This 80-nucleotide RNA sequence from Aphidius gifuensis belongs to the Rfam family "mir-315 microRNA precursor family".
Gene Ontology terms of the family: miRNA-mediated post-transcriptional gene silencing and RISC complex.
On this family, see Aravin et al., Dev Cell 2003: "The small RNA profile during Drosophila melanogaster development".
It scores 76 bits against the family's covariance model.
RNA sequence: CUCUUUAUGCUUUUGAUUGUUGCUCAGAAAGCCUCGAUAUUAAUACUGGCUUUCGGGUAAUAAUCAUAAUCACGGAAGAG
Numbered sequence: 001c002u003c004u005u006u007a008u009g010c011u012u013u014u015g016a017u018u019g020u021u022g023c024u025c026a027g028a029a030a031g032c033c034u035c036g037a038u039a040u041u042a043a044u045a046c047u048g049g050c051u052u053u054c055g056g057g058u059a060a061u062a063a064u065c066a067u068a069a070u071c072a073c074g075g076a077a078g079a080g
Base pairs, nucleotide, nucleotide: 001080002079003078004077005076006075011069012068014066015065016064017063019061020060021059022058023057024056025055027054028053029052030051031050032049033048